[Rfam]
RNA sequence: ACUCUCCUGCUUUGCCGAAGCCCUGCGUGCCACGCGGGGUACUUUGUAGGCAAAGUUGGGGAUU
Numbered sequence: 001a002c003u004c005u006c007c008u009g010c011u012u013u014g015c016c017g018a019a020g021c022c023c024u025g026c027g028u029g030c031c032a033c034g035c036g037g038g039g040u041a042c043u044u045u046g047u048a049g050g051c052a053a054a055g056u057u058g059g060g061g062a063u064u
Base pairs, nucleotide, nucleotide: 001064003062004061005060006059007058009056010055011054012053013052014051015050016049020040021039022038023037024036025035026034027033028032
Shown here is a 64-nucleotide RNA, a member of the family "DUF3800-VIII RNA". It is annotated as a small RNA. From the family's description: Bacteroidetes, Cyanobacteria, Firmicutes, Planctomycetes (1 example), Proteobacteria, Tenericutes (1 example). The family's consensus secondary structure is taken from published work.